[Rfam]
RNA sequence: AGCUAUAAUUUGCCUAAUGUCAUUCUUUGACAACGGAGGAAUUCUAUUUUGGGGUGAAUCCAUAAAGGUAAGGUUCUCUUUCCUGAACCCGUCAACUAACUUCGUCGGCAUAAAAAAAAGGUGUA
Dot-bracket structure: ..........((((...(((.........)))((((((....(.......)(((.....((.....))..(((........)))...))).........)))))).))))...............
Numbered sequence: 001a002g003c004u005a006u007a008a009u010u011u012g013c014c015u016a017a018u019g020u021c022a023u024u025c026u027u028u029g030a031c032a033a034c035g036g037a038g039g040a041a042u043u044c045u046a047u048u049u050u051g052g053g054g055u056g057a058a059u060c061c062a063u064a065a066a067g068g069u070a071a072g073g074u075u076c077u078c079u080u081u082c083c084u085g086a087a088c089c090c091g092u093c094a095a096c097u098a099a100c101u102u103c104g105u106c107g108g109c110a111u112a113a114a115a116a117a118a119a120g121g122u123g124u125a
Stems, first nucleotide, its partner, number of pairs: 011110004018032003033105006043051001052090003060068002071084003
The family of this 125-nucleotide RNA from Clostridium sp. N3C is "c-di-AMP riboswitch aptamer (ydaO/yuaA leader)". The pairing is the family consensus, mapped onto this sequence. Taxonomically the source falls in Clostridium (Bacteria, Bacillati, Bacillota, Clostridiaceae).